RNA sequence: ACGCUAUAAAGAGUGGACGAGAGAUCUGGCUCAGUGACUCCACGGCAACCUGCUAUUGGUAAGGUGCCCCAACCAGCAAAGCUAUAAAUGCUUUGAAUGAUGACGU
Numbered sequence: 001a002c003g004c005u006a007u008a009a010a011g012a013g014u015g016g017a018c019g020a021g022a023g024a025u026c027u028g029g030c031u032c033a034g035u036g037a038c039u040c041c042a043c044g045g046c047a048a049c050c051u052g053c054u055a056u057u058g059g060u061a062a063g064g065u066g067c068c069c070c071a072a073c074c075a076g077c078a079a080a081g082c083u084a085u086a087a088a089u090g091c092u093u094u095g096a097a098u099g100a101u102g103a104c105g106u
Stems, first nucleotide, its partner, number of pairs: 001106003005102003013043005021032003026076004044068004049064002051061004072098001077095006
RNA: SAM riboswitch aptamer (S box leader)
Organism: Pelagirhabdus alkalitolerans